Source information
Nitrogen stress-induced RNA 1: a 58-nucleotide RNA sequence from Phormidium nigroviride. A search with the family's covariance model found it, with a score of 54 bits. Rfam classes the family as a small RNA. The pairing is the family consensus, mapped onto this sequence.

RNA sequence: UGGUAGAUGCACCCUGAUUAAUUAACUCCCCGCCAAUUCUGGUUUGGGGGUUUUUUUU
Numbered sequence: 001u002g003g004u005a006g007a008u009g010c011a012c013c014c015u016g017a018u019u020a021a022u023u024a025a026c027u028c029c030c031c032g033c034c035a036a037u038u039c040u041g042g043u044u045u046g047g048g049g050g051u052u053u054u055u056u057u058u
Stems, first nucleotide, its partner, number of pairs: 002013003027050006033042003